This 60-nucleotide sequence from Lactobacillus helveticus belongs to the Rfam family "Bacillus-plasmid RNA". Pairs were carried over by alignment from the consensus structure, which is taken from published work. The sequence is in the family's curated seed alignment. It is annotated as a small RNA. The family has 31 seed sequences and 155 matches in Rfam 15.1.

[Rfam]
Nucleotides: 060
Base pairs, nucleotide, nucleotide: 001052002051003050004049005048006047007046008045009044
Number, partner (000 for none) and nucleotide at each position: 001052a002051a003050u004049g005048u006047c007046a008045a009044c010000g011000g012000u013000a014000c015000c016000g017000g018000a019000c020000u021000g022000a023000g024000c025000u026000u027000g028000c029000g030000a031000g032000g033000g034000a035000g036000g037000a038000u039000a040000a041000g042000g043000a044009g045008u046007u047006g048005a049004c050003a051002u052001u053000u054000u055000g056000c057000u058000g059000u060000c